[Rfam]
Nucleotides: 128
Base pairs, nucleotide, nucleotide: 003101004100005099006098007097014090020073021072022071023070024069025068076085077084078083103123104122105121106119107118108117109116110115
Number, partner (000 for none) and nucleotide at each position: 001000a002000c003101c004100u005099a006098c007097c008000a009000g010000a011000g012000g013000u014090u015000g016000u017000a018000a019000a020073g021072g022071a023070u024069a025068c026000g027000c028000g029000g030000g031000u032000g033000a034000a035000a036000c037000u038000g039000a040000u041000a042000u043000a044000a045000u046000a047000u048000u049000a050000a051000c052000a053000u054000u055000u056000a057000a058000g059000g060000u061000c062000g063000a064000a065000u066000u067000c068025g069024u070023a071022u072021c073020u074000g075000a076085u077084u078083c079000u080000u081000c082000g083078g084077a085076a086000g087000a088000u089000a090014a091000u092000a093000g094000u095000a096000a097007g098006g099005u100004a101003g102000u103123g104122c105121a106119a107118c108117g109116u110115a111000g112000u113000a114000a115110u116109a117108c118107g119106u120000u121105u122104g123103c124000g125000g126000g127000a128000g

A member of the RNA family "lysM-TM7 RNA", 128 nucleotides long.
The family's RNA type in Rfam is cis-regulatory element.
Rfam's curators put it in the seed alignment.